[Rfam]
Nucleotides: 086
Base pairs, nucleotide, nucleotide: 001084002083003082004081005080006079009076010075011074012073013072014071018067019066020065021064025059026058027057028056032053033052034051035050036049
Number, partner (000 for none) and nucleotide at each position: 001084u002083u003082g004081a005080a006079g007000a008000a009076u010075u011074u012073a013072g014071a015000g016000a017000u018067u019066u020065c021064a022000g023000c024000u025059u026058g027057u028056a029000a030000a031000c032053u033052u034051g035050a036049a037000a038000a039000a040000u041000u042000u043000g044000a045000a046000g047000a048000c049036u050035u051034c052033a053032g054000c055000u056028u057027g058026c059025a060000u061000a062000c063000u064021u065020g066019a067018a068000u069000a070000g071014u072013u073012u074011a075010a076009a077000g078000a079006c080005u081004u082003c083002a084001a085000c086000u
The family of this 86-nucleotide sequence from Solanum lycopersicum is "MIR8024 microRNA precursor family".
Taxonomically the source falls in Solanum subgen. Lycopersicon (Eukaryota, Embryophyta, Pentapetalae, lamiids).
Gene Ontology terms of the family: miRNA-mediated post-transcriptional gene silencing and RISC complex.